Rfam assigns this 179-nucleotide sequence from Cebus imitator to the family "U4 spliceosomal RNA". A search with the family's covariance model found it, with a score of 69 bits. Its family is annotated with spliceosomal tri-snRNP complex assembly and U4 snRNP in the Gene Ontology. The family's consensus secondary structure is taken from published work. From the family's description: U4 small nuclear RNA (U4 snRNA) is a component of the major U2-dependent spliceosome.
RNA sequence: AGCUUUGUGCAGUGGCAGUAUCGUAGCCAAUGAGGUUUAUCCAAGGCGUGAUUAUUGCAAAUUGAAAACGUUUCCCAAUUUCAUUUAGCUCUGCCCUGAUCUUGGUAAUGUCCUUUCUUCUGCUGGGUUUGGGUUUGGUUUAUUCUUGUUUCUCUAGUUCCUUUAGCUGUGAACUUAGA
Dot-bracket structure: ...................(((((.(((.....((.....))..))))))))..............................(.(.(((((.(...................................).)))))..).)............((((...................))))